[Rfam]
RNA sequence: GCGGGCCCACUCUGUUCCUUGCUGCUCACUCCAGCCUGGAACUUUUUUCGCCUGCUAUAUGAACACGCAGAAUGUAACUUUUCUUACUGGCUUUGCAAAUAAGCUGGUAUUAUUAUGUUCUGCCACAUUUCU
Number, nucleotide and partner (000 for none) at each position: 001g055002c054003g053004g052005g051006c050007c000008c000009a000010c000011u000012c000013u000014g042015u041016u040017c039018c038019u000020u000021g000022c034023u033024g032025c000026u000027c000028a000029c000030u000031c000032c024033a023034g022035c000036c000037u000038g018039g017040a016041a015042c014043u000044u000045u000046u000047u000048u000049c000050g006051c005052c004053u003054g002055c001056u000057a000058u000059a000060u000061g000062a000063a000064c000065a000066c000067g123068c122069a121070g120071a119072a118073u117074g000075u115076a114077a113078c000079u000080u000081u000082u000083c000084u000085u000086a000087c000088u000089g000090g000091c000092u000093u000094u000095g000096c000097a000098a000099a000100u000101a000102a000103g000104c000105u000106g000107g000108u000109a000110u000111u000112a000113u077114u076115a075116u000117g073118u072119u071120c070121u069122g068123c067124c000125a000126c000127a000128u000129u000130u000131c000132u000
This 132-nucleotide RNA sequence from Takifugu rubripes belongs to the Rfam family "Small nucleolar RNA SNORA77". The family's consensus secondary structure was predicted with RNAalifold. For this family Rfam cites "A computational screen for mammalian pseudouridylation guide H/ACA RNAs" (Schattner et al., RNA, 2006).